[Rfam]
Nucleotides: 081
Stems, first nucleotide, its partner, number of pairs: 003079003009074002015068006024058003028055007
Number, partner (000 for none) and nucleotide at each position: 001000c002000c003079g004078a005077g006000c007000c008000a009074c010073a011000g012000c013000a014000g015068u016067u017066c018065u019064u020063c021000a022000g023000u024058g025057g026056c027000g028055a029054g030053c031052u032051u033050u034049a035000u036000g037000u038000c039000u040000u041000g042000u043000c044000c045000c046000a047000g048000c049034u050033a051032a052031a053030g054029c055028u056026g057025c058024c059000a060000g061000u062000u063020g064019a065018a066017g067016a068015a069000c070000u071000g072000c073010u074009g075000a076000g077005c078004u079003c080000u081000g